[Rfam]
RNA sequence: GUUUAUGGAUGACGAGAAAUCAAUAAUAAUACAGUUAUCCCUGGCUGAUUAUCUGUGCUGACACUUCUUUUUAAUCUGACAUAAAC
Numbered sequence: 001g002u003u004u005a006u007g008g009a010u011g012a013c014g015a016g017a018a019a020u021c022a023a024u025a026a027u028a029a030u031a032c033a034g035u036u037a038u039c040c041c042u043g044g045c046u047g048a049u050u051a052u053c054u055g056u057g058c059u060g061a062c063a064c065u066u067c068u069u070u071u072u073a074a075u076c077u078g079a080c081a082u083a084a085a086c
Stems, first nucleotide, its partner, number of pairs: 001086007
Small nucleolar RNA R38: an 86-nucleotide RNA from Citrus sinensis. From the family's description: snoR38 is a C/D box small nucleolar RNA conserved across yeast, human, Arabidopsis and rice. It scores 58 bits against the family's covariance model. Gene Ontology terms of the family: nucleolus and RNA processing. The family's RNA type in Rfam is C/D-box small nucleolar RNA.